[Rfam]
RNA sequence: GGGUGGGGGAGAGUGGGUCUGGGCGGGGCGGCGGUCACGUUUUGUCUAACCCUAACUGAGCUGGGCGGAGGCGCCGCGCUUUUGCUCCCCGCGCGCUGUUUUUCUCGCUGACUUUCAGCGGGCGGAAAAGCCUCGGUCUACCGCCACUUACCAUCCAGUCUGGAGUAAACAAAAAAUGUCAGCCGCUGGCUCGCUCGCCCCUCCCGGGACCCUGCGACGGCUCGCCCGCCCAGCCCCCGCGCCCCGCCUGGAGGCCGCGGUCGGCCCGGGGCUUCUCCGGAGGCGCCCAAUGCCGCCGCGAAGAGUUGGGCUCUGUCAGCCGCGGGUGCCUCGGGGGCCAGGGACGAGGCUCUGGCCGCAGGGAGAGGAACGGAGCGGGUCCCCGCGCGCGGUGCGCUUCCCUGAGCUGUGGGACGUGCACCCGGGACUCGGCUCAAACACGU
Number, nucleotide and partner (000 for none) at each position: 001g000002g000003g000004u000005g000006g000007g000008g000009g000010a000011g000012a000013g000014u000015g000016g000017g000018u208019c207020u206021g205022g204023g203024c000025g201026g200027g199028g198029c197030g196031g195032c000033g191034g190035u189036c188037a187038c000039g000040u000041u000042u000043u000044g000045u000046c000047u000048a000049a000050c000051c000052c000053u000054a000055a000056c000057u000058g000059a000060g000061c000062u000063g000064g000065g000066c000067g000068g000069a000070g000071g000072c000073g000074c000075c000076g000077c000078g131079c130080u129081u128082u127083u000084g000085c000086u000087c000088c000089c000090c124091g123092c122093g000094c120095g119096c118097u117098g116099u000100u000101u000102u000103u000104c000105u000106c000107g183108c182109u181110g180111a179112c178113u176114u175115u174116c098117a097118g096119c095120g094121g000122g092123c091124g090125g000126a000127a082128a081129a080130g079131c078132c000133u000134c000135g000136g000137u000138c000139u000140a000141c000142c000143g000144c000145c000146a000147c000148u000149u000150a000151c000152c000153a000154u000155c000156c000157a000158g000159u000160c000161u000162g000163g000164a000165g000166u000167a000168a000169a000170c000171a000172a000173a000174a115175a114176a113177u000178g112179u111180c110181a109182g108183c107184c000185g000186c000187u037188g036189g035190c034191u033192c000193g000194c000195u031196c030197g029198c028199c027200c026201c025202u000203c023204c022205c021206g020207g019208g018209a000210c000211c362212c361213u360214g359215c358216g357217a000218c000219g000220g000221c000222u000223c000224g350225c349226c348227c346228g345229c000230c343231c342232a000233g338234c337235c336236c335237c334238c333239g332240c000241g000242c000243c326244c325245c324246g323247c322248c000249u000250g000251g000252a000253g000254g000255c000256c300257g299258c298259g297260g296261u000262c295263g294264g293265c292266c000267c000268g288269g287270g286271g000272c000273u000274u000275c000276u000277c000278c000279g000280g000281a000282g000283g000284c000285g000286c270287c269288c268289a000290a000291u000292g265293c264294c263295g262296c260297c259298g258299c257300g256301a000302a314303g313304a312305g311306u000307u000308g000309g000310g000311c305312u304313c303314u302315g000316u000317c000318a000319g000320c000321c000322g247323c246324g245325g244326g243327u000328g000329c000330c000331u000332c239333g238334g237335g236336g235337g234338c233339c000340a000341g000342g231343g230344a000345c228346g227347a000348g226349g225350c224351u000352c000353u000354g000355g000356c000357c216358g215359c214360a213361g212362g211363g000364a000365g000366a000367g000368g000369a000370a000371c000372g000373g435374a434375g433376c432377g430378g429379g428380u427381c426382c425383c424384c000385g000386c000387g000388c000389g000390c000391g000392g421393u420394g419395c418396g417397c000398u000399u414400c413401c412402c411403u000404g000405a000406g000407c000408u000409g000410u000411g402412g401413g400414a399415c000416g000417u396418g395419c394420a393421c392422c000423c000424g383425g382426g381427a380428c379429u378430c377431g000432g376433c375434u374435c373436a000437a000438a000439c000440a000441c000442g000443u000
Shown here is a 443-nucleotide sequence, a member of the family "Vertebrate telomerase RNA". The family has 37 seed sequences and 523 matches in Rfam 15.1. Its family is annotated with telomerase catalytic core complex, telomerase activity and telomere maintenance via telomerase in the Gene Ontology. The sequence is in the family's curated seed alignment. Telomerase is a ribonucleoprotein reverse transcriptase that synthesises telomeric DNA. Telomerase RNAs differ greatly in sequence and structure between vertebrates, ciliates and yeasts, but they share a 5' pseudoknot structure close to the template sequence. Vertebrate telomerase RNAs have a 3' H/ACA snoRNA-like domain. It is annotated as a non-coding RNA gene. The literature on the family includes a 2000 paper in Cell by Chen et al., "Secondary structure of vertebrate telomerase RNA". The base pairs follow the family's consensus structure, which is taken from published work.